[Rfam]
RNA: MIR828 microRNA precursor family
RNA sequence: UAAAUGUUUCUUGCUUAAAUGAGUAUUCCAUGGAAGUGAUUCACUCACAUUAAUAAUAUAUAGACCUAAUCUGAGUGGAUUUCUCUUCACGAGGUACUCAUUUAAGCAAGCAAUGUUUG
Numbered sequence: 001u002a003a004a005u006g007u008u009u010c011u012u013g014c015u016u017a018a019a020u021g022a023g024u025a026u027u028c029c030a031u032g033g034a035a036g037u038g039a040u041u042c043a044c045u046c047a048c049a050u051u052a053a054u055a056a057u058a059u060a061u062a063g064a065c066c067u068a069a070u071c072u073g074a075g076u077g078g079a080u081u082u083c084u085c086u087u088c089a090c091g092a093g094g095u096a097c098u099c100a101u102u103u104a105a106g107c108a109a110g111c112a113a114u115g116u117u118u119g
Stems, first nucleotide, its partner, number of pairs: 004116005010110018029091001